[Rfam]
RNA sequence: UCAGGUCUUUUUGCGGUCUGGGCUUGCUGUAGGAUGUCUGUCCAGGAAGCCCUUACCCCAAAAAGCAUCUG
Numbered sequence: 001u002c003a004g005g006u007c008u009u010u011u012u013g014c015g016g017u018c019u020g021g022g023c024u025u026g027c028u029g030u031a032g033g034a035u036g037u038c039u040g041u042c043c044a045g046g047a048a049g050c051c052c053u054u055a056c057c058c059c060a061a062a063a064a065g066c067a068u069c070u071g
Base pairs, nucleotide, nucleotide: 007065008064009063010062011061012060013059015057016056017055020052021051022050023049025047027045028044
mir-129 microRNA precursor family: a 71-nucleotide RNA sequence from Gambusia affinis. NCBI's taxonomy places the organism under Eukaryota, Eumetazoa, Euteleostomi, Teleostei, Gambusia. For this family Rfam cites "Identification of tissue-specific microRNAs from mouse" (Lagos-Quintana et al., Curr Biol, 2002). The match comes from Rfam's covariance-model search (76 bits).